[Rfam]
The record is a 70-nucleotide sequence from Saezia sanguinis, which matches "Fluoride riboswitch aptamer (crcB RNA motif)" in Rfam. Taxonomically the source falls in Saezia (Bacteria, Pseudomonadota, Burkholderiales, Saeziaceae).
Nucleotides: 070
Base pairs, nucleotide, nucleotide: 010026011025012024013023016061017060018059019058020057034051035050036049037048038047039046040045
Number, partner (000 for none) and nucleotide at each position: 001000g002000g003000a004000a005000g006000c007000a008000c009000u010026g011025g012024a013023g014000a015000u016061g017060g018059c019058a020057u021000a022000c023013c024012u025011c026010c027000u028000u029000u030000a031000a032000c033000c034051g035050c036049u037048g038047c039046a040045u041000u042000u043000u044000c045040a046039u047038g048037u049036g050035g051034c052000u053000g054000a055000u056000g057020a058019u059018g060017c061016c062000u063000a064000c065000a066000g067000g068000u069000u070000c